The record is a 75-nucleotide RNA sequence from Prevotella brunnea, which matches "tRNA" in Rfam. The family's consensus secondary structure is taken from published work. Transfer RNA (tRNA) molecules are approximately 80 nucleotides in length.
RNA sequence: CGGGAUGUAGUUCAGUAGGUUUAGAAUGCCGGUCUGGGGGACCGGUGGUCGCUGGUUCGAGUCCAGUCAUCCCGA
Numbered sequence: 001c002g003g004g005a006u007g008u009a010g011u012u013c014a015g016u017a018g019g020u021u022u023a024g025a026a027u028g029c030c031g032g033u034c035u036g037g038g039g040g041a042c043c044g045g046u047g048g049u050c051g052c053u054g055g056u057u058c059g060a061g062u063c064c065a066g067u068c069a070u071c072c073c074g075a
Base pairs, nucleotide, nucleotide: 001074002073003072004071005070006069007068010027011026012025013024029045030044031043032042033041051067052066053065054064055063